Metazoan signal recognition particle RNA: a 294-nucleotide RNA sequence from Malurus cyaneus. Clan: SRP clan. The signal recognition particle (SRP) is a universally conserved ribonucleoprotein. Rfam classes the family as a non-coding RNA gene. The literature on the family includes a 2002 paper in Nucleic Acids Res by Regalia et al., "Prediction of signal recognition particle RNA genes". The family's consensus secondary structure is taken from published work.
[Rfam]
RNA sequence: GCCGGGCGCGGUGGCGAUCAGCGCUGUAGUCCCAGCUGCCGGGGGGCUGAGCCGACGGAUCGCUUGAGCCAGGAGUUCUGGGCUGCGUGCGUGUGCCGAGCGGGGUCCAAGCUAAGGCCGCCAUCAUAUGGUGACCCGCGGGGAGCUGCGGGACACCGGUUGACUAGGAGGGGUGAACGGCCCAGGGUCGGAGAGGACGCAGGUCAACAGCUCCCGUGGCGGUCAGUAGCGGGAUCGCGCCUGUGAAUAGCCACUGCAGCGUAGCCUGGGCAACACAGAGACACGCGGGCUCCC
Numbered sequence: 001g002c003c004g005g006g007c008g009c010g011g012u013g014g015c016g017a018u019c020a021g022c023g024c025u026g027u028a029g030u031c032c033c034a035g036c037u038g039c040c041g042g043g044g045g046g047c048u049g050a051g052c053c054g055a056c057g058g059a060u061c062g063c064u065u066g067a068g069c070c071a072g073g074a075g076u077u078c079u080g081g082g083c084u085g086c087g088u089g090c091g092u093g094u095g096c097c098g099a100g101c102g103g104g105g106u107c108c109a110a111g112c113u114a115a116g117g118c119c120g121c122c123a124u125c126a127u128a129u130g131g132u133g134a135c136c137c138g139c140g141g142g143g144a145g146c147u148g149c150g151g152g153a154c155a156c157c158g159g160u161u162g163a164c165u166a167g168g169a170g171g172g173g174u175g176a177a178c179g180g181c182c183c184a185g186g187g188u189c190g191g192a193g194a195g196g197a198c199g200c201a202g203g204u205c206a207a208c209a210g211c212u213c214c215c216g217u218g219g220c221g222g223u224c225a226g227u228a229g230c231g232g233g234a235u236c237g238c239g240c241c242u243g244u245g246a247a248u249a250g251c252c253a254c255u256g257c258a259g260c261g262u263a264g265c266c267u268g269g270g271c272a273a274c275a276c277a278g279a280g281a282c283a284c285g286c287g288g289g290c291u292c293c294c
Stems, first nucleotide, its partner, number of pairs: 001047003004025002006022002008019001030044003049292005056285002060281002063278002068271002070268004078264003082260004087254003091251001092249003096245001100244005105238002107233002111230004116224009125162002129158005135152007170214005179205004188197002
Description:
The family has 91 seed sequences and 383,523 matches in Rfam 15.1. NCBI's taxonomy places the organism under Eukaryota, Gnathostomata, Theropoda, Australaves, Malurus cyaneus.